[Rfam]
RNA sequence: GCCGUGCUCUCAGGGUCCAGUUUUCCCAGGAAUCCCUUAGGCACUACGUUGGGGAUUCCUGGAAAUACUG
Numbered sequence: 001g002c003c004g005u006g007c008u009c010u011c012a013g014g015g016u017c018c019a020g021u022u023u024u025c026c027c028a029g030g031a032a033u034c035c036c037u038u039a040g041g042c043a044c045u046a047c048g049u050u051g052g053g054g055a056u057u058c059c060u061g062g063a064a065a066u067a068c069u070g
Stems, first nucleotide, its partner, number of pairs: 018070004023065002026062012
Description:
The record is a 70-nucleotide sequence from Chloroceryle aenea, which matches "mir-145 microRNA precursor family" in Rfam. The match comes from Rfam's covariance-model search (76 bits). A reference for the family is Chen et al. (2005), "The developmental miRNA profiles of zebrafish as determined by small RNA cloning", Genes Dev. NCBI's taxonomy places the organism under Eukaryota, Deuterostomia, Archelosauria, Coraciiformes, Chloroceryle. The base pairs follow the family's consensus structure, which was predicted with RNAalifold. The family has 26 seed sequences and 645 matches in Rfam 15.1.